Shown here is a 137-nucleotide RNA from Naasia lichenicola, a member of the family "Glycine riboswitch aptamer". A search with the family's covariance model found it, with a score of 55 bits.
RNA sequence: AGGACCGACGCGGGAGAGUCCGGACGCACGCACAGUGUCGCAAGCACGGUGUCGCAAGCACAGUGCGAGCUGAUCCGGACGCCGAAGGAGCAAACCUCCCCGUCAAUCUCUCAGGUAAUAGGUACCGCGACGGACCG
Numbered sequence: 001a002g003g004a005c006c007g008a009c010g011c012g013g014g015a016g017a018g019u020c021c022g023g024a025c026g027c028a029c030g031c032a033c034a035g036u037g038u039c040g041c042a043a044g045c046a047c048g049g050u051g052u053c054g055c056a057a058g059c060a061c062a063g064u065g066c067g068a069g070c071u072g073a074u075c076c077g078g079a080c081g082c083c084g085a086a087g088g089a090g091c092a093a094a095c096c097u098c099c100c101c102g103u104c105a106a107u108c109u110c111u112c113a114g115g116u117a118a119u120a121g122g123u124a125c126c127g128c129g130a131c132g133g134a135c136c137g
Stems, first nucleotide, its partner, number of pairs: 006132002009129005019079006081116003084112002088110003094103002